The family of this 524-nucleotide part of an RNA is "Eukaryotic large subunit ribosomal RNA". Rfam links the family to the GO terms ribosome and structural constituent of ribosome. Pairs were carried over by alignment from the consensus structure, which is taken from published work.
[Rfam]
RNA sequence: CCCUCCGAAGUUUCCCUCAGGAUAGCUGGGACUCGUCUUUGUAUAGUUUUAUCAGGUAAAGCGAAUGAUUAGAGGUUUCGGGGUUGCAACAACUUCGCCCUAUUCUCAAACUUUAAAUGGGUAAGAUGUGCAGGCUGCUUAGGUGAGCCUGCACGCAUAUAUAACAAUAGAAUAUAGAGUCCUUAGUGGGCCAUUUUUGGUAAGCAGAACUGGCGAUGCGGGAUGAACCGAACGUGUGGGUUAAGGUGCCAAAGUGCGCGCUCAUGUAGACACCAUAAAGGGUGUCGGUUCAUUCAGACAGCAGGACGGUGGUCAUGGAAGUCGAAAUCCGCUAAGGAGUGUGUAACAACUCACCUGCCGAAUGGACCGGCCCCGAAAAUGGAUGGCGCUCAAGCGCGACCACCUAUACCCAACCGUCAGCGCGAACAAUAUUAUUACAGGAUCGUCUGACGAGUAGGAGGGCGUGGGGUCCGUAGCGAAGCCUACCGCCCGUGAGGGCAGGUCGAACGGACCCUAGUGCAGAU
Numbered sequence: 001c002c003c004u005c006c007g008a009a010g011u012u013u014c015c016c017u018c019a020g021g022a023u024a025g026c027u028g029g030g031a032c033u034c035g036u037c038u039u040u041g042u043a044u045a046g047u048u049u050u051a052u053c054a055g056g057u058a059a060a061g062c063g064a065a066u067g068a069u070u071a072g073a074g075g076u077u078u079c080g081g082g083g084u085u086g087c088a089a090c091a092a093c094u095u096c097g098c099c100c101u102a103u104u105c106u107c108a109a110a111c112u113u114u115a116a117a118u119g120g121g122u123a124a125g126a127u128g129u130g131c132a133g134g135c136u137g138c139u140u141a142g143g144u145g146a147g148c149c150u151g152c153a154c155g156c157a158u159a160u161a162u163a164a165c166a167a168u169a170g171a172a173u174a175u176a177g178a179g180u181c182c183u184u185a186g187u188g189g190g191c192c193a194u195u196u197u198u199g200g201u202a203a204g205c206a207g208a209a210c211u212g213g214c215g216a217u218g219c220g221g222g223a224u225g226a227a228c229c230g231a232a233c234g235u236g237u238g239g240g241u242u243a244a245g246g247u248g249c250c251a252a253a254g255u256g257c258g259c260g261c262u263c264a265u266g267u268a269g270a271c272a273c274c275a276u277a278a279a280g281g282g283u284g285u286c287g288g289u290u291c292a293u294u295c296a297g298a299c300a301g302c303a304g305g306a307c308g309g310u311g312g313u314c315a316u317g318g319a320a321g322u323c324g325a326a327a328u329c330c331g332c333u334a335a336g337g338a339g340u341g342u343g344u345a346a347c348a349a350c351u352c353a354c355c356u357g358c359c360g361a362a363u364g365g366a367c368c369g370g371c372c373c374c375g376a377a378a379a380u381g382g383a384u385g386g387c388g389c390u391c392a393a394g395c396g397c398g399a400c401c402a403c404c405u406a407u408a409c410c411c412a413a414c415c416g417u418c419a420g421c422g423c424g425a426a427c428a429a430u431a432u433u434a435u436u437a438c439a440g441g442a443u444c445g446u447c448u449g450a451c452g453a454g455u456a457g458g459a460g461g462g463c464g465u466g467g468g469g470u471c472c473g474u475a476g477c478g479a480a481g482c483c484u485a486c487c488g489c490c491c492g493u494g495a496g497g498g499c500a501g502g503u504c505g506a507a508c509g510g511a512c513c514c515u516a517g518u519g520c521a522g523a524u
Stems, first nucleotide, its partner, number of pairs: 001462006011024001013022003028183006047126007059114001060112002066108003071103001073101003079097005085091001128154009190214004195209005219230003234414002237412003241408001245404003254401001256400001259396003280374003284371010301358005307331003313325002332336001337352001341350002415452006422446003463519001465516010481503002489498003